[Rfam]
RNA sequence: UCCAGUGGUAGUCAGCUGUCCAGAGCAAUACUAUGCCUGUGAUAGUGUUACACUGCUGGGAGAUAAAGAUCAGUCAUUUCUUCUGGCUGCAGUUGUCACCAUUCUGGAAACGACUGGUGCCAGCAAGAAGUGGCAUUGUGCUUCCCUGAGAGCGCACUAAAGGUUCUCUUCUCCUCUUUAGUGCUAGUCUGGAAGCCUACACA
Numbered sequence: 001u002c003c004a005g006u007g008g009u010a011g012u013c014a015g016c017u018g019u020c021c022a023g024a025g026c027a028a029u030a031c032u033a034u035g036c037c038u039g040u041g042a043u044a045g046u047g048u049u050a051c052a053c054u055g056c057u058g059g060g061a062g063a064u065a066a067a068g069a070u071c072a073g074u075c076a077u078u079u080c081u082u083c084u085g086g087c088u089g090c091a092g093u094u095g096u097c098a099c100c101a102u103u104c105u106g107g108a109a110a111c112g113a114c115u116g117g118u119g120c121c122a123g124c125a126a127g128a129a130g131u132g133g134c135a136u137u138g139u140g141c142u143u144c145c146c147u148g149a150g151a152g153c154g155c156a157c158u159a160a161a162g163g164u165u166c167u168c169u170u171c172u173c174c175u176c177u178u179u180a181g182u183g184c185u186a187g188u189c190u191g192g193a194a195g196c197c198u199a200c201a202c203a
Stems, first nucleotide, its partner, number of pairs: 001060009011051002015046006021039003068136001073134004078129005083123005090116003094113001138198001140196006154184003158180006

Shown here is a 203-nucleotide RNA sequence from Copsychus sechellarum, a member of the family "Small nucleolar RNA SNORA74". The base pairs follow the family's consensus structure, which was predicted with PFOLD. A reference for the family is Ganot et al. (1997), "The family of box ACA small nucleolar RNAs is defined by an evolutionarily conserved secondary structure and ubiquitous sequence elements essential for RNA accumulation", Genes Dev. U19 belongs to the H/ACA class of snoRNAs. snoRNAs bind a number of proteins (including dyskerin, Gar1p and Nop10p in the case of the H/ACA class) to form snoRNP complexes. This class are thought to guide the sites of modification of uridines to pseudouridines by forming direct base pairing interactions with substrate RNAs. Targets may include ribosomal and spliceosomal RNAs but the exact functions of many snoRNAs, including U19, are not confirmed. Co-precipitation of U19 snoRNA with RNase MRP RNA suggests that U19 may be involved in pre-rRNA processing. It is annotated as an H/ACA-box small nucleolar RNA. Rfam links the family to the GO terms nucleolus and RNA processing. It scores 94 bits against the family's covariance model.